[Rfam]
RNA sequence: UCUCAGGGAUGGCACUCUGUCUACUUGUGUUUUGGACCAUGAGACAGUGCGUCCUCCCUCAGAU
Numbered sequence: 001u002c003u004c005a006g007g008g009a010u011g012g013c014a015c016u017c018u019g020u021c022u023a024c025u026u027g028u029g030u031u032u033u034g035g036a037c038c039a040u041g042a043g044a045c046a047g048u049g050c051g052u053c054c055u056c057c058c059u060c061a062g063a064u
Base pairs, nucleotide, nucleotide: 002062003061006057007056008055011052013051015049017047018046019045020044021043022042026039027038
Rfam assigns this 64-nucleotide sequence from Biomphalaria glabrata to the family "mir-1994 microRNA precursor family". The family has 4 seed sequences and 26 matches in Rfam 15.1. The match comes from Rfam's covariance-model search (50 bits). Taxonomically the source falls in Biomphalaria (Eukaryota, Mollusca, Euthyneura, Hygrophila).